[Rfam]
RNA sequence: AGUAAUCGAAGAGGUCGCAACCGCCAUGAGUAACUAGUGGAGUUUCUGGAUUAACGAAGAAGCUAGUGAAAGGGAAAGUUGCCGAAGCUGACACCAAUACCAGGGGUGUUGGGCUGGGACAUAAUUGAAUAAAUUAUGGACUGUCGUAGACUAAAAUAGUUUGCGGAGCGCUAUCGACAGAU
Numbered sequence: 001a002g003u004a005a006u007c008g009a010a011g012a013g014g015u016c017g018c019a020a021c022c023g024c025c026a027u028g029a030g031u032a033a034c035u036a037g038u039g040g041a042g043u044u045u046c047u048g049g050a051u052u053a054a055c056g057a058a059g060a061a062g063c064u065a066g067u068g069a070a071a072g073g074g075a076a077a078g079u080u081g082c083c084g085a086a087g088c089u090g091a092c093a094c095c096a097a098u099a100c101c102a103g104g105g106g107u108g109u110u111g112g113g114c115u116g117g118g119a120c121a122u123a124a125u126u127g128a129a130u131a132a133a134u135u136a137u138g139g140a141c142u143g144u145c146g147u148a149g150a151c152u153a154a155a156a157u158a159g160u161u162u163g164c165g166g167a168g169c170g171c172u173a174u175c176g177a178c179a180g181a182u
Base pairs, nucleotide, nucleotide: 006177007176008175009174010172011171017082018081019080020079021078025074033067034066035065036064037063038062086115087114088113089111090110091109092108093107094106095105116142117141120138121137122136123135124134125133126132144166145165146164147163148162149161150160
The family of this 182-nucleotide RNA from Bombilactobacillus apium is "Lysine riboswitch aptamer". About the family: Riboswitches are metabolite binding domains within certain messenger RNAs that serve as precision sensors for their corresponding targets.